The record is a 276-nucleotide RNA sequence from Gracilibacillus thailandensis, which matches "BsrG" in Rfam. Lineage of the source: Bacteria > Bacilli > Caryophanales > Bacillaceae > Gracilibacillus. The match comes from Rfam's covariance-model search (69 bits).

[Rfam]
RNA sequence: CAAUAAUAGAUCGGCUUCAUAUGAGGGGUGGCGCACCUUGUUGUACCUUCUUUGGAUACUUCCAAGGGAAGGGAGGUGACGCUUAUGGACAUAGCUAAUACUUUAGCGCUCAUGAUAUCUUUUGGGAUGUUAAUAGCGUUUAUUAUGUCCGACAAAAAUAACAAAAGAUAACCCCUCAUAUGCUUUUGCCUAGGCUCUGAGGGAUUAUCUCCUGAAAGUGCCGCCCCUCUUAUCGGGGUUCGGUCUAUUGUAACCGUAGACGGUGCAACGUCUACG
Number, nucleotide and partner (000 for none) at each position: 001c250002a249003a248004u247005a246006a244007u243008a000009g241010a000011u000012c223013g222014g221015c220016u000017u218018c182019a181020u180021a179022u178023g177024a176025g175026g173027g172028g000029u170030g000031g000032c000033g000034c078035a077036c000037c076038u075039u000040g000041u000042u000043g000044u000045a000046c000047c000048u000049u000050c000051u000052u000053u000054g000055g000056a000057u000058a000059c000060u000061u000062c000063c000064a000065a000066g000067g000068g000069a000070a000071g000072g000073g000074a000075g038076g037077u035078g034079a000080c000081g000082c000083u000084u000085a000086u000087g150088g149089a148090c147091a146092u145093a144094g000095c000096u000097a000098a000099u000100a000101c114102u000103u000104u000105a000106g000107c000108g000109c000110u000111c000112a000113u000114g101115a000116u000117a000118u000119c000120u000121u000122u000123u000124g000125g141126g140127a139128u000129g000130u000131u000132a000133a000134u000135a000136g000137c000138g000139u127140u126141u125142a000143u000144u093145a092146u091147g090148u089149c088150c087151g000152a000153c000154a000155a000156a000157a000158a000159u000160a000161a000162c000163a000164a000165a000166a000167g000168a000169u000170a029171a000172c027173c026174c000175c025176u024177c023178a022179u021180a020181u019182g018183c000184u000185u000186u000187u000188g000189c000190c000191u000192a000193g211194g210195c000196u000197c000198u000199g000200a000201g000202g000203g000204a000205u000206u000207a000208u000209c000210u194211c193212c000213u000214g000215a000216a000217a000218g017219u000220g015221c014222c013223g012224c238225c237226c236227c235228u000229c000230u000231u000232a000233u000234c000235g227236g226237g225238g224239u000240u000241c009242g000243g007244u006245c000246u005247a004248u003249u002250g001251u000252a000253a000254c000255c276256g275257u274258a273259g272260a271261c270262g269263g000264u000265g000266c000267a000268a000269c262270g261271u260272c259273u258274a257275c256276g255